RNA sequence: AUAACAUUCUGACCAUCGGUCUACCGAACAAUAUCACCCGUUCGAUGGAAGAUCUUCCCUUUGUCGU
Numbered sequence: 001a002u003a004a005c006a007u008u009c010u011g012a013c014c015a016u017c018g019g020u021c022u023a024c025c026g027a028a029c030a031a032u033a034u035c036a037c038c039c040g041u042u043c044g045a046u047g048g049a050a051g052a053u054c055u056u057c058c059c060u061u062u063g064u065c066g067u
Stems, first nucleotide, its partner, number of pairs: 004064003011057002015053003020049004025044005
RNA: mir-2774 microRNA precursor family